[Rfam]
RNA sequence: AGGAAACUGAUUUCCUAUGGUGUUUUAGAGUAUUGAAUCUCAUCUAGCACCAUUUGAAAUCGGUGUUCU
Numbered sequence: 001a002g003g004a005a006a007c008u009g010a011u012u013u014c015c016u017a018u019g020g021u022g023u024u025u026u027a028g029a030g031u032a033u034u035g036a037a038u039c040u041c042a043u044c045u046a047g048c049a050c051c052a053u054u055u056g057a058a059a060u061c062g063g064u065g066u067u068c069u
Stems, first nucleotide, its partner, number of pairs: 001069004005064001007063008017053006026046004